[Rfam]
RNA sequence: GAGUCCAGCAUAUACGCGAGUGCUUGGGUGGUAAACCUUAGCGCGUAGCGAAAGCAUAGGAAUCAUGAAUUAUUGAACUUUUUUUUUUAUUUUUUUUAUUAAAGAAAAUUUAAAAAACUGACUUUUUAAUUGUCAUUUUUCUAAUGUGGGAGCUUUUUCGUUUUGAAUGCGCACCACGAUCCAACUUUCAAAGCUUAGGCAGGAAUAGUUUGUGACCGAGCGUAUAUGAUGGGACCCGAAAGAUGGUGAACUAUGCCUGAGUAGGAUGAAGCCAGAGGAAACUCUGGUGGAGGUCCGAAGGCGUUCUGACGUGCAAAUCGAUGCUCGAACUUGGGUAUAGGGGCGAAAGACUAAUCGAACCAUCUAGUAGCUGGUU
Dot-bracket structure: ....(((.(((((((((..(((...((((.....))))...)))...((....)).........................................................................................(((((..((...............))...))))).(((((((......((....))......)).))).))....))))))))).)))..((.(...((((((...((((((((((((.((((...(((((((....)))))))....))))...((((.((.((........))))))))..).))))))))))).((.......))......))))))......).))..
Numbered sequence: 001g002a003g004u005c006c007a008g009c010a011u012a013u014a015c016g017c018g019a020g021u022g023c024u025u026g027g028g029u030g031g032u033a034a035a036c037c038u039u040a041g042c043g044c045g046u047a048g049c050g051a052a053a054g055c056a057u058a059g060g061a062a063u064c065a066u067g068a069a070u071u072a073u074u075g076a077a078c079u080u081u082u083u084u085u086u087u088u089a090u091u092u093u094u095u096u097u098a099u100u101a102a103a104g105a106a107a108a109u110u111u112a113a114a115a116a117a118c119u120g121a122c123u124u125u126u127u128a129a130u131u132g133u134c135a136u137u138u139u140u141c142u143a144a145u146g147u148g149g150g151a152g153c154u155u156u157u158u159c160g161u162u163u164u165g166a167a168u169g170c171g172c173a174c175c176a177c178g179a180u181c182c183a184a185c186u187u188u189c190a191a192a193g194c195u196u197a198g199g200c201a202g203g204a205a206u207a208g209u210u211u212g213u214g215a216c217c218g219a220g221c222g223u224a225u226a227u228g229a230u231g232g233g234a235c236c237c238g239a240a241a242g243a244u245g246g247u248g249a250a251c252u253a254u255g256c257c258u259g260a261g262u263a264g265g266a267u268g269a270a271g272c273c274a275g276a277g278g279a280a281a282c283u284c285u286g287g288u289g290g291a292g293g294u295c296c297g298a299a300g301g302c303g304u305u306c307u308g309a310c311g312u313g314c315a316a317a318u319c320g321a322u323g324c325u326c327g328a329a330c331u332u333g334g335g336u337a338u339a340g341g342g343g344c345g346a347a348a349g350a351c352u353a354a355u356c357g358a359a360c361c362a363u364c365u366a367g368u369a370g371c372u373g374g375u376u
Stems, first nucleotide, its partner, number of pairs: 005232003009228009020044003026038004048055002145178005152170002180215002182212003185208002193200002235374002238371001242364006251340011262328001264296004271288007300325004305321002308319002342352002
The record is a 376-nucleotide part of an RNA from Hemiselmis andersenii, which matches "Eukaryotic large subunit ribosomal RNA" in Rfam. Rfam links the family to the GO terms structural constituent of ribosome and ribosome. The sequence is in the family's curated seed alignment. The base pairs follow the family's consensus structure, which is taken from published work. On this family, see Cannone et al., BMC Bioinformatics 2002: "The comparative RNA web (CRW) site: an online database of comparative sequence and structure information for ribosomal, intron, and other RNAs". NCBI's taxonomy places the organism under Eukaryota, Cryptophyceae, Cryptomonadales, Hemiselmidaceae, Hemiselmis.